[Rfam]
Rfam assigns this 152-nucleotide RNA sequence from [Clostridium] cellulosi to the family "Ribosomal protein L10 leader". From the family's description: This family is a putative r-protein leader autoregulatory structure found in B. subtilis and other low-GC Gram-positive bacteria. It is located in the 5' untranslated regions of mRNAs encoding ribosomal proteins L10 and L12 (rplJ-rplL). A reference for the family is Zengel and Lindahl (1994), "Diverse mechanisms for regulating ribosomal protein synthesis in Escherichia coli", Prog Nucleic Acid Res Mol Biol. Gene Ontology term of the family: regulation of gene expression. NCBI's taxonomy places the organism under Bacteria, Bacillati, Eubacteriales, Oscillospiraceae, Ruminiclostridium.
RNA sequence: AGUUUUAUAACCGUUUAUCCUAAGACAGCAGGUGCCUUUAUAGGCUCAAAUUGGCCUGCCGAGGUGUAACGCUUGCAUUGUUCGGUACUUAUUACCGAAUUAUAAUGUAUGCUGAGCCUUCGGCGAAAGCCGAAGGCUUUUUUGUUGGGGAC
Numbered sequence: 001a002g003u004u005u006u007a008u009a010a011c012c013g014u015u016u017a018u019c020c021u022a023a024g025a026c027a028g029c030a031g032g033u034g035c036c037u038u039u040a041u042a043g044g045c046u047c048a049a050a051u052u053g054g055c056c057u058g059c060c061g062a063g064g065u066g067u068a069a070c071g072c073u074u075g076c077a078u079u080g081u082u083c084g085g086u087a088c089u090u091a092u093u094a095c096c097g098a099a100u101u102a103u104a105a106u107g108u109a110u111g112c113u114g115a116g117c118c119u120u121c122g123g124c125g126a127a128a129g130c131c132g133a134a135g136g137c138u139u140u141u142u143u144g145u146u147g148g149g150g151a152c
Stems, first nucleotide, its partner, number of pairs: 028059006034045003116137009